Rfam assigns this 70-nucleotide sequence to the family "tRNA". Gene Ontology term of the family: triplet codon-amino acid adaptor activity. It is annotated as a transfer RNA. For this family Rfam cites "tRNAscan-SE: a program for improved detection of transfer RNA genes in genomic sequence" (Lowe and Eddy, Nucleic Acids Res, 1997). About the family: Transfer RNA (tRNA) molecules are approximately 80 nucleotides in length.
[Rfam]
RNA sequence: CAAGACAUAGCUAGUUAGUAAGUUCCUCUUUUACACGGAGGUCACACUCGUGCAAUUCGGGUUGUCUUGA
Numbered sequence: 001c002a003a004g005a006c007a008u009a010g011c012u013a014g015u016u017a018g019u020a021a022g023u024u025c026c027u028c029u030u031u032u033a034c035a036c037g038g039a040g041g042u043c044a045c046a047c048u049c050g051u052g053c054a055a056u057u058c059g060g061g062u063u064g065u066c067u068u069g070a
Stems, first nucleotide, its partner, number of pairs: 001069007010023003025041005046062005